RNA: Ribosomal protein L10 leader
Organism: Paenibacillus albiflavus
RNA sequence: UGAUAUUGAAUAUAUAGACCGUAGACAGCAGGUGCUGUAAUAAGCUUAAUUUCCUGCCGAGGUGUUGUGAUAUAAUUUCCGAAUGGCUUGCCUUACGAGGUGAGCCUGAAGGAUGAACGUCAUGCCUUCGUAUUGUCUGCGAAGGCAUUUCUUUUUGCUUAG
Numbered sequence: 001u002g003a004u005a006u007u008g009a010a011u012a013u014a015u016a017g018a019c020c021g022u023a024g025a026c027a028g029c030a031g032g033u034g035c036u037g038u039a040a041u042a043a044g045c046u047u048a049a050u051u052u053c054c055u056g057c058c059g060a061g062g063u064g065u066u067g068u069g070a071u072a073u074a075a076u077u078u079c080c081g082a083a084u085g086g087c088u089u090g091c092c093u094u095a096c097g098a099g100g101u102g103a104g105c106c107u108g109a110a111g112g113a114u115g116a117a118c119g120u121c122a123u124g125c126c127u128u129c130g131u132a133u134u135g136u137c138u139g140c141g142a143a144g145g146c147a148u149u150u151c152u153u154u155u156u157g158c159u160u161a162g
Stems, first nucleotide, its partner, number of pairs: 028057005034045003123147010